[Rfam]
RNA sequence: GUUGGUUAUGGAGACAUGUGUCCCUCCACAAUUGGGGGUAAAUUCGUCGGAUCUUUGUGCGCUAUCGCCGGAGUGCUAACCAUAGCUCUACCUGUACCUGUAAUCGUGUCCAAU
Numbered sequence: 001g002u003u004g005g006u007u008a009u010g011g012a013g014a015c016a017u018g019u020g021u022c023c024c025u026c027c028a029c030a031a032u033u034g035g036g037g038g039u040a041a042a043u044u045c046g047u048c049g050g051a052u053c054u055u056u057g058u059g060c061g062c063u064a065u066c067g068c069c070g071g072a073g074u075g076c077u078a079a080c081c082a083u084a085g086c087u088c089u090a091c092c093u094g095u096a097c098c099u100g101u102a103a104u105c106g107u108g109u110c111c112a113a114u
Base pairs, nucleotide, nucleotide: 001114002113004111005110007108008107009106010105011104014101015100016099018097019096020095021094037077038076039075040074049063050062
RNA: Potassium channel RNA editing signal
Organism: Parambassis ranga